The record is a 162-nucleotide RNA from Paenibacillus pini, which matches "FMN riboswitch aptamer (RFN element)" in Rfam.
A reference for the family is Vitreschak et al. (2002), "Regulation of riboflavin biosynthesis and transport genes in bacteria by transcriptional and translational attenuation", Nucleic Acids Res.
NCBI's taxonomy places the organism under Bacteria, Bacillati, Bacilli, Paenibacillus, Paenibacillus pini.
[Rfam]
Nucleotides: 162
Base pairs, nucleotide, nucleotide: 004159005158006157007156008155009154010153017029018028019027031142032141033132034131035078036077037076038075073130074129082107083106084105085104086103112128113127114126115125116124134145135144136143
Number, partner (000 for none) and nucleotide at each position: 001000a002000u003000g004159g005158a006157u007156c008155u009154u010153c011000g012000g013000g014000g015000u016000a017029g018028g019027g020000u021000g022000c023000a024000a025000u026000u027019c028018c029017c030000a031142a032141c033132c034131g035078g036077c037076g038075g039000u040000g041000a042000g043000c044000a045000u046000u047000u048000u049000g050000c051000u052000u053000c054000u055000u056000a057000a058000a059000a060000g061000a062000a063000u064000a065000a066000a067000a068000u069000g070000u071000a072000a073130g074129c075038c076037c077036g078035c079000g080000a081000c082107u083106c084105g085104c086103u087000g088000u089000u090000u091000u092000g093000a094000u095000a096000c097000u098000a099000a100000g101000a102000u103086a104085g105084c106083g107082a108000c109000u110000g111000a112128c113127u114126u115125g116124g117000u118000g119000a120000g121000a122000u123000u124116c125115c126114a127113a128112g129074g130073c131034c132033g133000a134145c135144g136143g137000u138000a139000c140000a141032g142031u143136c144135c145134g146000g147000a148000u149000g150000a151000g152000a153010g154009a155008a156007g157006a158005u159004c160000a161000a162000c